A member of the RNA family "c-di-AMP riboswitch aptamer (ydaO/yuaA leader)", 142 nucleotides long.

[Rfam]
RNA sequence: GCAGCAGCAUCACCGCACCACAACAGCACCGAGGGAACCGGGGAACCACCACCUUGGGGUGAAUCGGGUCGAACCUGACCCGUAGGAGACCUUCCUGCUCCGAACCCGUCAGCUAACCCGGUAGGCGAGAGGGAAGGAAAGG
Numbered sequence: 001g002c003a004g005c006a007g008c009a010u011c012a013c014c015g016c017a018c019c020a021c022a023a024c025a026g027c028a029c030c031g032a033g034g035g036a037a038c039c040g041g042g043g044a045a046c047c048a049c050c051a052c053c054u055u056g057g058g059g060u061g062a063a064u065c066g067g068g069u070c071g072a073a074c075c076u077g078a079c080c081c082g083u084a085g086g087a088g089a090c091c092u093u094c095c096u097g098c099u100c101c102g103a104a105c106c107c108g109u110c111a112g113c114u115a116a117c118c119c120g121g122u123a124g125g126c127g128a129g130a131g132g133g134a135a136g137g138a139a140a141g142g
Stems, first nucleotide, its partner, number of pairs: 011127001013125002019035001037122006047056002057107003065082004085101004